[Rfam]
RNA: Small nucleolar RNA SNORA17
Organism: Atractosteus spatula
RNA sequence: CCUGCCCCUAGAGGCGUUGCAUCGCGACUGCGAGUGUCGUGUUUGUGUCAGUAGGUGGCAGAGAGAAACAGGCUAUGUCUGCACUCGGUGUUCCAAAUAAAUGGUUACUCAGAAUGAUUAUUGGCCUGACACU
Numbered sequence: 001c002c003u004g005c006c007c008c009u010a011g012a013g014g015c016g017u018u019g020c021a022u023c024g025c026g027a028c029u030g031c032g033a034g035u036g037u038c039g040u041g042u043u044u045g046u047g048u049c050a051g052u053a054g055g056u057g058g059c060a061g062a063g064a065g066a067a068a069c070a071g072g073c074u075a076u077g078u079c080u081g082c083a084c085u086c087g088g089u090g091u092u093c094c095a096a097a098u099a100a101a102u103g104g105u106u107a108c109u110c111a112g113a114a115u116g117a118u119u120a121u122u123g124g125c126c127u128g129a130c131a132c133u
Stems, first nucleotide, its partner, number of pairs: 002061005007055004013049003019046003023041006069128007082116002085113002088110001089107002092104002
Dot-bracket structure: .(((((((((..(((...(((.((((((.......))))))..))))))..)))).))))).......(((((((......((.((.(((.((.........)).))..).)).)).....))))))).....